Background:
Rfam assigns this 144-nucleotide RNA sequence from Paracidovorax valerianellae to the family "radC RNA". The base pairs follow the family's consensus structure, which is taken from published work. It scores 87 bits against the family's covariance model. By type it is a cis-regulatory element.

RNA sequence: AAGCUGGCUGCAUGUGUCGCUGACGCCGUCAGCACCAUGCCAGCAGCCAGGGUCCCCGAGGCUGCCGCGGGAGUUUCUCCCGCGCGAUCCGCCCGUCCGCCAUCGCAUCGAGUCCGCGGACACGCGUCCUGGUGACGCCGAUGC
Numbered sequence: 001a002a003g004c005u006g007g008c009u010g011c012a013u014g015u016g017u018c019g020c021u022g023a024c025g026c027c028g029u030c031a032g033c034a035c036c037a038u039g040c041c042a043g044c045a046g047c048c049a050g051g052g053u054c055c056c057c058g059a060g061g062c063u064g065c066c067g068c069g070g071g072a073g074u075u076u077c078u079c080c081c082g083c084g085c086g087a088u089c090c091g092c093c094c095g096u097c098c099g100c101c102a103u104c105g106c107a108u109c110g111a112g113u114c115c116g117c118g119g120a121c122a123c124g125c126g127u128c129c130u131g132g133u134g135a136c137g138c139c140g141a142u143g144c
Stems, first nucleotide, its partner, number of pairs: 011039004019033006043065006051089004066084007116144003124138005